Rfam assigns this 397-nucleotide RNA from Lentimicrobium saccharophilum to the family "Bacterial RNase P class A". About the family: Ribonuclease P (RNase P) is a ubiquitous endoribonuclease, found in archaea, bacteria and eukarya as well as chloroplasts and mitochondria. Rfam classes the family as a ribozyme. Lineage of the source: Bacteria > Pseudomonadati > Bacteroidota > Lentimicrobiaceae > Lentimicrobium. Its family is annotated with ribonuclease P activity, tRNA processing and dimeric ribonuclease P complex in the Gene Ontology.
[Rfam]
RNA sequence: AAAGCAACGUGUUCUGUCGCUUUUGGUCGAAAGACUAAAAGAGGAAAGUCGGGGCAACAAAGGGCACCAUACUUCCUAACGGGAAGGUUCUGCAGCCGGCGGAAACAGCAAGUGCCACAGAAAAUUACCGUCUUGUCAUGAUUUAUCAUGACAGGAUAAGGGUGAAAAUGUGGGGUAAGAGCCCACGGCUCAGGUUGGUGACAGCCUGCGCGGGUAAACCUUAUGGGUUGAAAGGCCAAAUAUACCGGAUCGUUGUGCCGCAAAGCGCAACAAAGGGCUGCCCGCUCUUUUCCGGGGGGUAGGCCGUUAGAACCUGAUGGCAACAUCAGGUGCAGAUAAAUGACAGAAGUCCCGCUUUUGCGGGAAACAGAACCCCGCUUACAUCGUUGUACGGCAC
Number, nucleotide and partner (000 for none) at each position: 001a000002a000003a000004g390005c389006a388007a387008c386009g385010u000011g382012u348013u347014c346015u345016g344017u343018c342019g000020c041021u040022u039023u038024u037025g036026g035027u034028c033029g000030a000031a000032a000033g028034a027035c026036u025037a024038a023039a022040a021041g020042a000043g000044g000045a000046a380047a379048g378049u000050c377051g376052g375053g374054g373055c230056a229057a228058c227059a000060a000061a000062g283063g282064g281065c280066a000067c226068c225069a224070u223071a222072c086073u085074u084075c083076c082077u000078a000079a000080c000081g000082g076083g075084a074085a073086g072087g106088u104089u103090c102091u101092g100093c099094a000095g000096c000097c000098g000099g093100c092101g091102g090103a089104a088105a000106c087107a221108g220109c000110a000111a000112g219113u218114g215115c214116c213117a000118c000119a000120g000121a000122a000123a000124a000125u000126u000127a000128c161129c160130g157131u156132c155133u154134u153135g152136u151137c150138a149139u148140g147141a146142u000143u000144u000145a000146u141147c140148a139149u138150g137151a136152c135153a134154g133155g132156a131157u130158a000159a000160g129161g128162g000163u000164g000165a000166a000167a000168a000169u187170g186171u185172g184173g183174g182175g000176u000177a000178a000179g000180a000181g000182c174183c173184c172185a171186c170187g169188g000189c000190u000191c208192a207193g206194g205195u204196u203197g202198g000199u000200g000201a000202c197203a196204g195205c194206c193207u192208g191209c000210g000211c000212g000213g116214g115215u114216a000217a000218a113219c112220c108221u107222u071223a070224u069225g068226g067227g058228u057229u056230g055231a000232a000233a000234g305235g304236c303237c302238a000239a000240a000241u000242a000243u000244a000245c295246c294247g293248g292249a291250u000251c000252g000253u000254u000255g000256u000257g000258c000259c000260g000261c000262a000263a000264a000265g000266c000267g000268c000269a000270a000271c000272a000273a000274a288275g287276g286277g285278c284279u000280g065281c064282c063283c062284g278285c277286u276287c275288u274289u000290u000291u249292c248293c247294g246295g245296g000297g000298g000299g000300u000301a000302g237303g236304c235305c234306g000307u000308u000309a000310g000311a000312a331313c330314c329315u328316g327317a326318u325319g324320g000321c000322a000323a000324c319325a318326u317327c316328a315329g314330g313331u312332g000333c000334a000335g000336a000337u000338a000339a000340a000341u000342g018343a017344c016345a015346g014347a013348a012349g000350u000351c000352c000353c000354g000355c000356u000357u000358u000359u000360g000361c000362g000363g000364g000365a000366a000367a000368c000369a000370g000371a000372a000373c054374c053375c052376c051377g050378c048379u047380u046381a000382c011383a000384u000385c009386g008387u007388u006389g005390u004391a000392c000393g000394g000395c000396a000397c000